The record is a 296-nucleotide RNA from Phaedon cochleariae, which matches "Metazoan signal recognition particle RNA" in Rfam. The match comes from Rfam's covariance-model search (269 bits). The family's consensus secondary structure is taken from published work. The organism belongs to Phaedon, within Eukaryota. The signal recognition particle (SRP) is a universally conserved ribonucleoprotein. It is involved in the co-translational targeting of proteins to membranes. The eukaryotic SRP consists of a 300-nucleotide 7S RNA and six proteins: SRPs 72, 68, 54, 19, 14, and 9. Archaeal SRP consists of a 7S RNA and homologues of the eukaryotic SRP19 and SRP54 proteins. Eukaryotic and archaeal 7S RNAs have very similar secondary structures, as represented by this family. Eight helical elements fold into the Alu and S domains, separated by a long linker region. The Alu domain is thought to mediate the peptide chain elongation retardation function of the SRP. The universally conserved helix which interacts with the SRP54 M domain mediates signal sequence recognition. In eukaryotes and archaea, the SRP19-helix 6 complex is thought to be involved in SRP assembly and stabilises helix 8 for SRP54 binding. The Signal Recognition Particle Database (SRPDB) provides compilations of SRP components, with phylogenetic data and structural illustrations. Many sequences below the threshold for this family are clearly closely related, but are most likely to be SRP RNA derived pseudogenes. The human genome in particular is known to contain a large amount of SRP RNA related sequence, including Alu repeats. While the threshold of this family is set high so as to minimise the number of hits to such regions, it is likely that some remain.
RNA sequence: ACUGGGAGCGUGGCGUCUCCUGUAAUCCAGCUACUUGGAGGUCAGAUUCAGCGGAUGGUUUGAGGUCGGGAGUCCUGGGGCAGGUUUUCUCACGUCGACCGGGUGUCCACACUAAGCUUGGCGUCGAUAUGGCUGCCCUGGAGGAGUCCGGGGCGGCCAGGUCGUCUAAGGAGAGGCGAACCGGGCCAGGGGGGAAACUCAGCAGCCAAAAGUCUCCGCGUCGAGCAGUAGUGGGAUCGCGCCUGGGAGUGGGAACCCUGUCACAGCCCGACCAAAAUAGCUAGACCUGGAUCUUU
Number, nucleotide and partner (000 for none) at each position: 001a042002c041003u040004g021005g020006g019007a018008g017009c000010g000011u000012g000013g000014c000015g000016u000017c008018u007019c006020c005021u004022g000023u000024a000025a000026u039027c038028c037029a000030g000031c000032u000033a000034c000035u000036u000037g028038g027039a026040g003041g002042u001043c000044a294045g293046a292047u291048u290049c289050a288051g287052c000053g000054g000055a000056u283057g282058g281059u280060u279061u000062g000063a000064g273065g272066u271067c270068g269069g268070g267071a000072g000073u000074c000075c266076u265077g264078g000079g262080g261081c260082a259083g258084g257085u000086u255087u254088u000089c253090u252091c251092a250093c249094g000095u247096c000097g000098a000099c246100c245101g244102g243103g242104u241105g240106u239107c235108c234109a000110c233111a232112c231113u230114a229115a000116g226117c225118u224119u223120g222121g221122c220123g219124u218125c164126g163127a162128u161129a000130u159131g158132g157133c156134u155135g154136c153137c152138c151139u150140g149141g148142a147143g000144g000145a000146g000147u142148c141149c140150g139151g138152g137153g136154c135155g134156g133157c132158c131159a130160g000161g128162u127163c126164g125165u171166c170167u000168a000169a000170g166171g165172a000173g216174a215175g214176g213177c212178g000179a000180a000181c000182c000183g000184g207185g206186c205187c000188a000189g000190g000191g200192g199193g198194g000195a000196a000197a000198c193199u192200c191201a000202g000203c000204a000205g186206c185207c184208a000209a000210a000211a000212g177213u176214c175215u174216c173217c000218g124219c123220g122221u121222c120223g119224a118225g117226c116227a000228g000229u114230a113231g112232u111233g110234g108235g107236a000237u000238c000239g106240c105241g104242c103243c102244u101245g100246g099247g095248a000249g093250u092251g091252g090253g089254a087255a086256c000257c084258c083259u082260g081261u080262c079263a000264c077265a076266g075267c070268c069269c068270g067271a066272c065273c064274a000275a000276a000277a000278u000279a060280g059281c058282u057283a056284g000285a000286c000287c051288u050289g049290g048291a047292u046293c045294u044295u000296u000